The record is a 74-nucleotide RNA from Azospira restricta, which matches "tRNA" in Rfam. Rfam classes the family as a transfer RNA. The match comes from Rfam's covariance-model search (69 bits). The base pairs follow the family's consensus structure, which is taken from published work. The organism belongs to Azospira, within Bacteria.
RNA sequence: GCGCCCGUAGCUCAACCGGAUAGAGCACCGGCCUUCUAAGCCGGGGGUUGUGAGUUCGAGUCUCGCCGGGCGCG
Numbered sequence: 001g002c003g004c005c006c007g008u009a010g011c012u013c014a015a016c017c018g019g020a021u022a023g024a025g026c027a028c029c030g031g032c033c034u035u036c037u038a039a040g041c042c043g044g045g046g047g048u049u050g051u052g053a054g055u056u057c058g059a060g061u062c063u064c065g066c067c068g069g070g071c072g073c074g
Stems, first nucleotide, its partner, number of pairs: 001073007010026004028044005050066005